About this RNA: Ribosomal protein L19 leader: a 41-nucleotide RNA from Paraliobacillus sp. PM-2. The source organism's lineage runs through Bacteria, Bacillati, Bacillota, Caryophanales and Paraliobacillus. Rfam describes the family as follows. This family is a putative r-protein leader autoregulatory structure found in B. subtilis and other low-GC Gram-positive bacteria. It is located in the 5' untranslated regions of mRNAs encoding ribosomal protein L19 (rplS).
[Rfam]
RNA sequence: ACGAUGUUCCGCUGUUAGUAACGAUUUGAUAAGAGCAUUGG
Numbered sequence: 001a002c003g004a005u006g007u008u009c010c011g012c013u014g015u016u017a018g019u020a021a022c023g024a025u026u027u028g029a030u031a032a033g034a035g036c037a038u039u040g041g
Base pairs, nucleotide, nucleotide: 003039004038005037006036007035008034009033013031014030015029016028017027018026